[Rfam]
RNA sequence: ACGGCCAGCACCUUGGCGAUAUACGGGAUCAGCGGCAAAUUCAGGACCAGCAGGACCACGUUGCCGAUAUACAUCGAUAUUAUGACCGACCAGAAGAUCUGCGGCUCGUCCACCAGCAACCGCGGACC
Dot-bracket structure: ...(((((....)))))........((.((..(((....(..(.((.(.(((((..(...(((........(((.......)))......)))..).))))).).)).)..).......))).)).))

The family of this 128-nucleotide RNA from Jannaschia donghaensis is "Ruegeria cis8 sRNA". The family's consensus secondary structure was predicted with RNAfold.